The family of this 74-nucleotide RNA sequence from Alligator mississippiensis is "Mammalian CPEB3 ribozyme". A search with the family's covariance model found it, with a score of 43 bits.
[Rfam]
RNA sequence: ACAAGUUAAGAGGCCAUAGGAGAAGCACUCACAGCACGGCCUGUCAGAUUCCAACGAAAUCUGCAAAUUCUGCU
Numbered sequence: 001a002c003a004a005g006u007u008a009a010g011a012g013g014c015c016a017u018a019g020g021a022g023a024a025g026c027a028c029u030c031a032c033a034g035c036a037c038g039g040c041c042u043g044u045c046a047g048a049u050u051c052c053a054a055c056g057a058a059a060u061c062u063g064c065a066a067a068u069u070c071u072g073c074u
Stems, first nucleotide, its partner, number of pairs: 012041004018074002021071004025037001045063006